RNA sequence: UGGCACCCAGCGUGAGGGCUGGAUAUGGAGGAUCCAGUGAGGGAAGAAGACGUCCCCAAAGGAACGUUCCACAAAAAUUUUCACUCUGGACAUGCUGCGGGAACCUGCCUCGGCCACAACCAGAAGUAAGUACCGACGUCUGAUUAUGGGACAAGAAAUAAGCAGGCACAAACUUUAUGUUAGGCAAUUGCAGGAUGCCUUAAGGACGCGAGGAGUAAAGGUUAAAAUAGAGGAUCUAUUCAGAUUCUUUGAAUUUAUUAAGGAAAUCUCU
Number, nucleotide and partner (000 for none) at each position: 001u000002g000003g000004c000005a000006c031007c030008c000009a000010g000011c000012g026013u025014g024015a000016g000017g000018g000019c000020u000021g000022g000023a000024u014025a013026u012027g000028g000029a000030g007031g006032a000033u000034c000035c000036a000037g000038u047039g000040a000041g000042g000043g000044a000045a000046g000047a038048a000049g000050a000051c000052g000053u000054c000055c000056c000057c000058a000059a000060a000061g000062g000063a000064a000065c000066g000067u000068u000069c000070c000071a000072c000073a000074a000075a000076a000077a000078u000079u000080u000081u000082c000083a127084c126085u125086c123087u122088g000089g000090a000091c000092a000093u116094g115095c000096u112097g111098c000099g109100g108101g000102a000103a000104c000105c000106u000107g000108c100109c099110u000111c097112g096113g000114c000115c094116a093117c000118a000119a000120c000121c000122a087123g086124a000125a085126g084127u083128a000129a000130g000131u000132a000133c000134c000135g152136a000137c000138g000139u150140c149141u148142g147143a000144u000145u000146a000147u142148g141149g140150g139151a000152c135153a000154a000155g000156a000157a000158a000159u202160a201161a200162g198163c197164a196165g000166g000167c000168a000169c000170a000171a000172a000173c000174u000175u000176u000177a000178u000179g000180u000181u000182a000183g000184g000185c000186a000187a000188u000189u000190g000191c000192a000193g000194g000195a000196u164197g163198c162199c000200u161201u160202a159203a000204g000205g000206a000207c000208g000209c251210g250211a249212g248213g247214a246215g245216u244217a000218a000219a237220g236221g235222u234223u233224a000225a000226a000227a000228u000229a000230g000231a000232g000233g223234a222235u221236c220237u219238a000239u000240u000241c000242a000243g000244a216245u215246u214247c213248u212249u211250u210251g209252a000253a000254u000255u000256u000257a000258u000259u000260a000261a000262g000263g000264a271265a000266a000267u000268c000269u000270c000271u264

The record is a 271-nucleotide sequence from Nannospalax galili, which matches "Mason-Pfizer monkey virus packaging signal" in Rfam. The family's consensus secondary structure was predicted with PFOLD. This family represents a group of sequences that are related to the Mason-Pfizer monkey virus (MPMV) packaging signal. The packaging signal is located in the 5' UTR and is required for specific RNA encapsidation. Rfam classes the family as a cis-regulatory element.